[Rfam]
Nucleotides: 106
Stems, first nucleotide, its partner, number of pairs: 001028003004024005010019002073102003076098003080094001083092002
Number, partner (000 for none) and nucleotide at each position: 001028g002027a003026g004024g005023c006022c007021g008020u009000a010019u011018c012000c013000u014000u015000g016000g017000u018011g019010a020008a021007c022006g023005g024004c025000a026003c027002u028001u029000u030000u031000c032000g033000g034000a035000a036000a037000a038000a039000g040000u041000u042000g043000u044000g045000c046000g047000a048000u049000u050000g051000u052000u053000u054000c055000u056000u057000u058000u059000c060000u061000u062000c063000c064000a065000a066000a067000a068000u069000g070000a071000a072000u073102c074101u075100g076098c077097u078096c079000u080094g081000a082000g083092c084091c085000u086000g087000u088000g089000u090000g091084g092083g093000a094080c095000c096078g097077a098076g099000a100075c101074a102073g103000a104000a105000g106000g
This 106-nucleotide RNA from Brevibacillus sp. SYP-B805 belongs to the Rfam family "pan motif". The match comes from Rfam's covariance-model search (44 bits).